[Rfam]
RNA sequence: CCCGUUGACGCGGGGUGCCCGGCGAUCGGGCUGAGAUCACACCCGUCGAACCUGCUCUAGUUCGCACUAGCGAAGGGACGUCAGUGGCGAAGUUC
Numbered sequence: 001c002c003c004g005u006u007g008a009c010g011c012g013g014g015g016u017g018c019c020c021g022g023c024g025a026u027c028g029g030g031c032u033g034a035g036a037u038c039a040c041a042c043c044c045g046u047c048g049a050a051c052c053u054g055c056u057c058u059a060g061u062u063c064g065c066a067c068u069a070g071c072g073a074a075g076g077g078a079c080g081u082c083a084g085u086g087g088c089g090a091a092g093u094u095c
Stems, first nucleotide, its partner, number of pairs: 006083005011045004016039001017031005051076003057070004
RNA: TPP riboswitch aptamer (THI element)